[Rfam]
RNA: Fluoride riboswitch aptamer (crcB RNA motif)
RNA sequence: GGUUCCUUGGGCGAUGGCGCCCGCCCGGGGCUUCGAGCCCGAACCGCCUCCCGUUGGGAGGCUGAUGGCGCCUAUUCUGUA
Numbered sequence: 001g002g003u004u005c006c007u008u009g010g011g012c013g014a015u016g017g018c019g020c021c022c023g024c025c026c027g028g029g030g031c032u033u034c035g036a037g038c039c040c041g042a043a044c045c046g047c048c049u050c051c052c053g054u055u056g057g058g059a060g061g062c063u064g065a066u067g068g069c070g071c072c073u074a075u076u077c078u079g080u081a
Stems, first nucleotide, its partner, number of pairs: 010025004016072006046062007